[Rfam]
This 600-nucleotide part of an RNA from Clavispora lusitaniae belongs to the Rfam family "Eukaryotic large subunit ribosomal RNA".
RNA sequence: AUCAGCGGGGAAAGAAGACCCUGUUGAGCUUGACUCUAGUUUGACAUUGUGAAAAGACAUGGAGGGUGUAGAAUAAGUGGGAGCUUCGGCGCCGGUGAAAUACCACUACCUCCAUCGUUUUUUUACUUACUGAAUGAAGGGGAGCUGGUUGUCAUGACCACGUUCUGGAUUUAAGCAGCAAUGCAAUCCCGGUUCAAGACAUUGUCAGGUGGGGAGUUUGGCUGGGGCGGCACAUCUGUUAAACGAUAACGCAGAUGUCCUAAGGGGGGCUCAUGGAGAACAGAAAUCUCCAGUAGAACAAAAGGGUAAAAGCCCCCUUGAUUUUGAUUUUCAGUGUGAAUACAAACCAUGAAAGUGUGGCCUAUCGAUCCUUUAGUCCCUCGGAAUUUGAGGCUAGAGGUGCCAGAAAAGUUACCACAGGGAUAACUGGCUUGUGGCAGUCAAGCGUUCAUAGCGACAUUGCUUUUUGAUUCUUCGAUGUCGGCUCUUCCUAUCAUACCGAAGCAGAAUUCGGUAAGCGUUGGAUUGUUCACCCACUAAUAGGGAACGUGAGCUGGGUUUAGACCGUCGUGAGACAGGUUUAGUUUUACCCUACUGAUG
Numbered sequence: 001a002u003c004a005g006c007g008g009g010g011a012a013a014g015a016a017g018a019c020c021c022u023g024u025u026g027a028g029c030u031u032g033a034c035u036c037u038a039g040u041u042u043g044a045c046a047u048u049g050u051g052a053a054a055a056g057a058c059a060u061g062g063a064g065g066g067u068g069u070a071g072a073a074u075a076a077g078u079g080g081g082a083g084c085u086u087c088g089g090c091g092c093c094g095g096u097g098a099a100a101u102a103c104c105a106c107u108a109c110c111u112c113c114a115u116c117g118u119u120u121u122u123u124u125a126c127u128u129a130c131u132g133a134a135u136g137a138a139g140g141g142g143a144g145c146u147g148g149u150u151g152u153c154a155u156g157a158c159c160a161c162g163u164u165c166u167g168g169a170u171u172u173a174a175g176c177a178g179c180a181a182u183g184c185a186a187u188c189c190c191g192g193u194u195c196a197a198g199a200c201a202u203u204g205u206c207a208g209g210u211g212g213g214g215a216g217u218u219u220g221g222c223u224g225g226g227g228c229g230g231c232a233c234a235u236c237u238g239u240u241a242a243a244c245g246a247u248a249a250c251g252c253a254g255a256u257g258u259c260c261u262a263a264g265g266g267g268g269g270c271u272c273a274u275g276g277a278g279a280a281c282a283g284a285a286a287u288c289u290c291c292a293g294u295a296g297a298a299c300a301a302a303a304g305g306g307u308a309a310a311a312g313c314c315c316c317c318u319u320g321a322u323u324u325u326g327a328u329u330u331u332c333a334g335u336g337u338g339a340a341u342a343c344a345a346a347c348c349a350u351g352a353a354a355g356u357g358u359g360g361c362c363u364a365u366c367g368a369u370c371c372u373u374u375a376g377u378c379c380c381u382c383g384g385a386a387u388u389u390g391a392g393g394c395u396a397g398a399g400g401u402g403c404c405a406g407a408a409a410a411g412u413u414a415c416c417a418c419a420g421g422g423a424u425a426a427c428u429g430g431c432u433u434g435u436g437g438c439a440g441u442c443a444a445g446c447g448u449u450c451a452u453a454g455c456g457a458c459a460u461u462g463c464u465u466u467u468u469g470a471u472u473c474u475u476c477g478a479u480g481u482c483g484g485c486u487c488u489u490c491c492u493a494u495c496a497u498a499c500c501g502a503a504g505c506a507g508a509a510u511u512c513g514g515u516a517a518g519c520g521u522u523g524g525a526u527u528g529u530u531c532a533c534c535c536a537c538u539a540a541u542a543g544g545g546a547a548c549g550u551g552a553g554c555u556g557g558g559u560u561u562a563g564a565c566c567g568u569c570g571u572g573a574g575a576c577a578g579g580u581u582u583a584g585u586u587u588u589a590c591c592c593u594a595c596u597g598a599u600g
Base pairs, nucleotide, nucleotide: 001599002598003597004596005595008593009592010591012588013587020421021420022419023418025417026416027413028412029411030410031409033217034216035215036214040209041208042207043206044205045204046203049126050125051124052123053122054121055120056119057118058117059115060114061113062112063111064110065109076107077106078105079104080103083090084089131196132195133194134193140190141189142188143187147159148158149157150156151155175184176183177182220233221231222230223229234256235255236254237253238252239251259360260359265317266316267315268314269313270312271297272296274292275291276290277289278288279287298307299306322346323345324344327341328340329339330338348357349356350355371399372398373397374396375395376394379393380392381391382390430471432469434468436464437463438462439461440460441459445455446454482557483555484554485553486552487549488546489545490544491543492542495520498515499514500513501512502511503510522536523535524534526532563582564580565579566578567576568575569574

It scores 3226 bits against the family's covariance model.